[Rfam]
RNA sequence: CCGGCACCGGUUCACCCUGGUCCUACCAGGGACCCGGCGGCC
Numbered sequence: 001c002c003g004g005c006a007c008c009g010g011u012u013c014a015c016c017c018u019g020g021u022c023c024u025a026c027c028a029g030g031g032a033c034c035c036g037g038c039g040g041c042c
Base pairs, nucleotide, nucleotide: 003042004041005040007037008036009035010034015031016030017029018028019027020026021025

The record is a 42-nucleotide RNA from Pseudonocardia sp. P2, which matches "L31-Actinobacteria ribosomal protein leader" in Rfam. A reference for the family is Eckert and Weinberg (2020), "Discovery of 20 novel ribosomal leader candidates in bacteria and archaea", BMC Microbiol. By type it is a cis-regulatory leader. The family's consensus secondary structure is taken from published work. The sequence is in the family's curated seed alignment.